This 105-nucleotide sequence from Eutrema salsugineum belongs to the Rfam family "mir-166 microRNA precursor family".
RNA sequence: GUUGAGAGGAAUGUUGUCUGGAUCGAGAUCAUGAAGAAAUCAUUCGAUCAAUAUGUAAAAUGAAAACCCUAAAUGAUUCUCGGACCAGGCUUCAUUCCCCCCAAC
Numbered sequence: 001g002u003u004g005a006g007a008g009g010a011a012u013g014u015u016g017u018c019u020g021g022a023u024c025g026a027g028a029u030c031a032u033g034a035a036g037a038a039a040u041c042a043u044u045c046g047a048u049c050a051a052u053a054u055g056u057a058a059a060a061u062g063a064a065a066a067c068c069c070u071a072a073a074u075g076a077u078u079c080u081c082g083g084a085c086c087a088g089g090c091u092u093c094a095u096u097c098c099c100c101c102c103a104a105c
Stems, first nucleotide, its partner, number of pairs: 001105004006100001008098006016090006024082003
About the family: This family represents the plant microRNA (miRNA) precursor mir-166. The match comes from Rfam's covariance-model search (88 bits). Lineage of the source: Eukaryota > eudicotyledons > Gunneridae > rosids > Eutrema.